[Rfam]
RNA sequence: AAAGUAGCAAUACCCCAUGUCUUGCUAAAGCAAGACAUGGGGUAUUGCUACUUUGUUU
Numbered sequence: 001a002a003a004g005u006a007g008c009a010a011u012a013c014c015c016c017a018u019g020u021c022u023u024g025c026u027a028a029a030g031c032a033a034g035a036c037a038u039g040g041g042g043u044a045u046u047g048c049u050a051c052u053u054u055g056u057u058u
Stems, first nucleotide, its partner, number of pairs: 001054014019036006
A member of the RNA family "Plastid-psbA-3 3UTR RNA" from Musa textilis, 58 nucleotides long. For this family Rfam cites "Retrograde signaling in plants: A critical review focusing on the GUN pathway and beyond" (Richter et al., Plant Commun, 2023). The family's RNA type in Rfam is cis-regulatory element. Plastid psbA-3 is a non-coding RNA (ncRNA) present in plastids. It was identified in inverted repeat sequences in the 3 prime untranslate region (3UTR) of photosystem II quinone-binding protein (psbA).